[Rfam]
RNA: SAM riboswitch aptamer (S box leader)
Organism: Psychrobacillus psychrotolerans
RNA sequence: UUCUUAUCAAGAGAGGUGGAGGGACUUGGCCCUAUGAUACCUCAGCAACAGGCAAAAAUUUGUACUGUGCUAAUUCCAGAAGCGUUAUGCUUGAAGAUAAGAA
Numbered sequence: 001u002u003c004u005u006a007u008c009a010a011g012a013g014a015g016g017u018g019g020a021g022g023g024a025c026u027u028g029g030c031c032c033u034a035u036g037a038u039a040c041c042u043c044a045g046c047a048a049c050a051g052g053c054a055a056a057a058a059u060u061u062g063u064a065c066u067g068u069g070c071u072a073a074u075u076c077c078a079g080a081a082g083c084g085u086u087a088u089g090c091u092u093g094a095a096g097a098u099a100a101g102a103a
Base pairs, nucleotide, nucleotide: 001103002102003101004100005099006098007097008096013043014042015041016040017039021032022031023030026079027078028077029076044071045070046069047068049067050066052063053062054061055060075095080092081091082090083089084088